[Rfam]
RNA: MIR7504 microRNA precursor family
Organism: Gossypium mustelinum
RNA sequence: AAUAGAAGAAUGACAAAUCAGAUUUUUCCUCUUGAUUUUCAACUUUUUUUUUCUCCUUAGAAAAAAAUAAAUCCAACUAAAAAAGCUAAAAAUCAGGAGAAAAAAUCUAAUUGGUCAUUAUCCUAUU
Numbered sequence: 001a002a003u004a005g006a007a008g009a010a011u012g013a014c015a016a017a018u019c020a021g022a023u024u025u026u027u028c029c030u031c032u033u034g035a036u037u038u039u040c041a042a043c044u045u046u047u048u049u050u051u052u053c054u055c056c057u058u059a060g061a062a063a064a065a066a067a068u069a070a071a072u073c074c075a076a077c078u079a080a081a082a083a084a085g086c087u088a089a090a091a092a093u094c095a096g097g098a099g100a101a102a103a104a105a106u107c108u109a110a111u112u113g114g115u116c117a118u119u120a121u122c123c124u125a126u127u
Stems, first nucleotide, its partner, number of pairs: 001127005007121001009119006016112003020108008029099011041087001045083004